[Rfam]
RNA sequence: CGCCGAACUCUGCGGUCUGACCGCCGCGGGGACCGGGGACCCAAGUUUCUGGGGUGAAUCCCGCCUGCGCCUCCACGGGCAGGCAGGUAGGGCACGUUCCGGCCCGAACCCGUCAGCUGACCUGGUAGGCG
Number, nucleotide and partner (000 for none) at each position: 001c131002g130003c129004c128005g000006a000007a000008c031009u030010c029011u028012g027013c026014g025015g024016u023017c000018u000019g000020a000021c000022c000023g016024c015025c014026g013027c012028g011029g010030g009031g008032a126033c125034c124035g123036g122037g121038g000039a000040c000041c000042c051043a050044a000045g000046u000047u000048u000049c000050u043051g042052g111053g110054g109055u000056g000057a000058a000059u000060c087061c086062c000063g084064c083065c082066u081067g080068c079069g000070c000071c000072u000073c000074c000075a000076c000077g000078g000079g068080c067081a066082g065083g064084c063085a000086g061087g060088u000089a000090g105091g104092g103093c102094a000095c000096g000097u000098u000099c000100c000101g000102g093103c092104c091105c090106g000107a000108a000109c054110c053111c052112g000113u000114c000115a000116g000117c000118u000119g000120a000121c037122c036123u035124g034125g033126u032127a000128g004129g003130c002131g001